RNA sequence: GAAUAAUAAUCGCUGAGUUUUCUGUAUAGAAAACCGGGGGAACCAAGUAAUUGGGGUGAAUCGAUAUGCAUGAGUGCAUGUCGUAGGGCUAAUUCUCACAGUCCGAAUCCGUCAGCUAACCUCGGAAGCGAAAGUGGGAAGGAUA
Numbered sequence: 001g002a003a004u005a006a007u008a009a010u011c012g013c014u015g016a017g018u019u020u021u022c023u024g025u026a027u028a029g030a031a032a033a034c035c036g037g038g039g040g041a042a043c044c045a046a047g048u049a050a051u052u053g054g055g056g057u058g059a060a061u062c063g064a065u066a067u068g069c070a071u072g073a074g075u076g077c078a079u080g081u082c083g084u085a086g087g088g089c090u091a092a093u094u095c096u097c098a099c100a101g102u103c104c105g106a107a108u109c110c111g112u113c114a115g116c117u118a119a120c121c122u123c124g125g126a127a128g129c130g131a132a133a134g135u136g137g138g139a140a141g142g143a144u145a
Base pairs, nucleotide, nucleotide: 011130012129013128014127018033019032020031021030022029023028034125035124036123037122038121039120044053045052054110055109056108062083063082064081065080066079067078068077086104087103088102089101
This 145-nucleotide RNA from Paenibacillus sp. FSL H7-0331 belongs to the Rfam family "c-di-AMP riboswitch aptamer (ydaO/yuaA leader)".